[Rfam]
Background: A member of the RNA family "Fluoride riboswitch aptamer (crcB RNA motif)" from Serratia odorifera, 63 nucleotides long. Taxonomically the source falls in Serratia odorifera (Bacteria, Pseudomonadati, Enterobacterales, Yersiniaceae).
RNA sequence: UCUUCCCUUGGAGAUGGCAUUCCUCCAUAACCGCCCUUACCGGCUGAUGAUGCCUACGUUACC
Numbered sequence: 001u002c003u004u005c006c007c008u009u010g011g012a013g014a015u016g017g018c019a020u021u022c023c024u025c026c027a028u029a030a031c032c033g034c035c036c037u038u039a040c041c042g043g044c045u046g047a048u049g050a051u052g053c054c055u056a057c058g059u060u061a062c063c
Stems, first nucleotide, its partner, number of pairs: 010026004016054006033044003